[Rfam]
RNA sequence: CAUUAAAUUCGGCAAACCCGGGGAAACCCGGCGACGCAAAGCUAUAGGGCCUCUGCUGGCAGCCAGUUGCAAUC
Numbered sequence: 001c002a003u004u005a006a007a008u009u010c011g012g013c014a015a016a017c018c019c020g021g022g023g024a025a026a027c028c029c030g031g032c033g034a035c036g037c038a039a040a041g042c043u044a045u046a047g048g049g050c051c052u053c054u055g056c057u058g059g060c061a062g063c064c065a066g067u068u069g070c071a072a073u074c
Stems, first nucleotide, its partner, number of pairs: 012037002018031005040068004047064002049060003